[Rfam]
RNA sequence: UUUUAAGUGUAAGUAUAUCCCAUGCAAUAUUAGGGAUAUGCUUACACUACAA
Numbered sequence: 001u002u003u004u005a006a007g008u009g010u011a012a013g014u015a016u017a018u019c020c021c022a023u024g025c026a027a028u029a030u031u032a033g034g035g036a037u038a039u040g041c042u043u044a045c046a047c048u049a050c051a052a
Stems, first nucleotide, its partner, number of pairs: 006048007014040003018036004022031001
Shown here is a 52-nucleotide sequence from Pan paniscus, a member of the family "mir-1302 microRNA precursor family".
The base pairs follow the family's consensus structure, which was predicted with WAR.
On this family, see Morin et al., Genome Res 2008: "Application of massively parallel sequencing to microRNA profiling and discovery in human embryonic stem cells".
Gene Ontology terms of the family: RISC complex and miRNA-mediated post-transcriptional gene silencing.
It scores 64 bits against the family's covariance model.